[Rfam]
RNA sequence: GGUUAUGUGUAAAAAUUGCGCAACCGGACGAUAUAGCGUAUAGUUCCGCUGUUGACGUAACGCAGUGUGCUUGCGGUCACCAGCCGCAAAAAGCUGCAAAAAAAACCUCGCUCCGGCGGGGUUUUUU
Numbered sequence: 001g002g003u004u005a006u007g008u009g010u011a012a013a014a015a016u017u018g019c020g021c022a023a024c025c026g027g028a029c030g031a032u033a034u035a036g037c038g039u040a041u042a043g044u045u046c047c048g049c050u051g052u053u054g055a056c057g058u059a060a061c062g063c064a065g066u067g068u069g070c071u072u073g074c075g076g077u078c079a080c081c082a083g084c085c086g087c088a089a090a091a092a093g094c095u096g097c098a099a100a101a102a103a104a105a106c107c108u109c110g111c112u113c114c115g116g117c118g119g120g121g122u123u124u125u126u127u
Stems, first nucleotide, its partner, number of pairs: 001052001006051002013045002017040005023034001063096004068092001071089001073087004101126011
This 127-nucleotide RNA from Kosakonia cowanii belongs to the Rfam family "istR Hfq binding RNA".
The organism belongs to Kosakonia cowanii, within Bacteria.
Its family is annotated with negative regulation of translation and mRNA binding in the Gene Ontology.
A reference for the family is Vogel et al. (2004), "The small RNA IstR inhibits synthesis of an SOS-induced toxic peptide", Curr Biol.